About this RNA
Shown here is an 89-nucleotide RNA sequence from Salinibacillus xinjiangensis, a member of the family "c-di-GMP-I riboswitch aptamer". From the family's description: GEMM was predicted in a large-scale screen for bacterial structured RNA regulatory elements. The source organism's lineage runs through Bacteria, Bacillati, Caryophanales, Bacillaceae and Salinibacillus. The family's consensus secondary structure is taken from published work.
RNA sequence: GCGAUAAGCUAGCAAACUAGUCGAAAGCCUAGGACGCAAAGCCACGGGUCUAAUGAAUAGUGAUAUUCGAUGAUCGCCGGGUUGCCGCA
Number, nucleotide and partner (000 for none) at each position: 001g000002c000003g000004a000005u000006a000007a000008g000009c000010u000011a000012g037013c036014a000015a000016a000017c032018u031019a030020g029021u000022c027023g000024a000025a000026a000027g022028c000029c020030u019031a018032g017033g000034a000035c000036g013037c012038a000039a000040a083041g082042c081043c080044a000045c079046g078047g077048g074049u073050c072051u000052a000053a000054u000055g068056a067057a066058u065059a000060g000061u000062g000063a000064u000065a058066u057067u056068c055069g000070a000071u000072g050073a049074u048075c000076g000077c047078c046079g045080g043081g042082u041083u040084g000085c000086c000087g000088c000089a000